[Rfam]
The record is a 259-nucleotide part of an RNA from Salinirubellus salinus, which matches "Archaeal large subunit ribosomal RNA" in Rfam. NCBI's taxonomy places the organism under Archaea, Halobacteria, Halobacteriales, Natronomonadaceae, Salinirubellus.

RNA sequence: GAGUGUACCUGUUUGGCGAGUCUAACUGGAGCAUCCAGGAAGGCGUAGGGAAACCGAUACGGCCGCAGCAUUGCCAGGGCCACCGUGUUCAAGCGCGGGGAGUCAAACGGGUACGACCCGAAACCGAGUGAUCUACGCGUGGACAGGGCGAAGCGUGGCGAAAGCUACGUGGAGGCCCGUUAGGGUUGGUGUCCUACAAUACCCUCCCGUGAUCUACGUGUAGGGGUGAAAGGCCCAUCGAACUCGGAAACAGCUGGUU
Numbered sequence: 001g002a003g004u005g006u007a008c009c010u011g012u013u014u015g016g017c018g019a020g021u022c023u024a025a026c027u028g029g030a031g032c033a034u035c036c037a038g039g040a041a042g043g044c045g046u047a048g049g050g051a052a053a054c055c056g057a058u059a060c061g062g063c064c065g066c067a068g069c070a071u072u073g074c075c076a077g078g079g080c081c082a083c084c085g086u087g088u089u090c091a092a093g094c095g096c097g098g099g100g101a102g103u104c105a106a107a108c109g110g111g112u113a114c115g116a117c118c119c120g121a122a123a124c125c126g127a128g129u130g131a132u133c134u135a136c137g138c139g140u141g142g143a144c145a146g147g148g149c150g151a152a153g154c155g156u157g158g159c160g161a162a163a164g165c166u167a168c169g170u171g172g173a174g175g176c177c178c179g180u181u182a183g184g185g186u187u188g189g190u191g192u193c194c195u196a197c198a199a200u201a202c203c204c205u206c207c208c209g210u211g212a213u214c215u216a217c218g219u220g221u222a223g224g225g226g227u228g229a230a231a232g233g234c235c236c237a238u239c240g241a242a243c244u245c246g247g248a249a250a251c252a253g254c255u256g257g258u259u
Stems, first nucleotide, its partner, number of pairs: 005114013020044004026038004048055002061081004068074002084097004117257002120254001124247006133223011144211001146178004153170007183208003188204002191202002225235003